The record is a 54-nucleotide RNA sequence from Hucho hucho, which matches "UnaL2 LINE 3' element" in Rfam. A reference for the family is Baba et al. (2004), "Solution structure of an RNA stem-loop derived from the 3' conserved region of eel LINE UnaL2", RNA. Rfam describes the family as follows. The eel long interspersed element (LINE) UnaL2 and its partner short interspersed element (SINE) share a conserved 3' tail containing a stem-loop that is critical for their retrotransposition. The match comes from Rfam's covariance-model search (60 bits). Rfam 15.1 lists 493,311 matches to the family in 99 species. The base pairs follow the family's consensus structure, which is taken from published work. The source organism's lineage runs through Eukaryota, Eumetazoa, Actinopterygii, Protacanthopterygii and Hucho.

RNA sequence: UUUUUUCCCCACUGUAAGUCGCUCUGGAUGAGAGCAUCUGCUAAAUGACUAAAA
Numbered sequence: 001u002u003u004u005u006u007c008c009c010c011a012c013u014g015u016a017a018g019u020c021g022c023u024c025u026g027g028a029u030g031a032g033a034g035c036a037u038c039u040g041c042u043a044a045a046u047g048a049c050u051a052a053a054a
Stems, first nucleotide, its partner, number of pairs: 013043001014041003021035005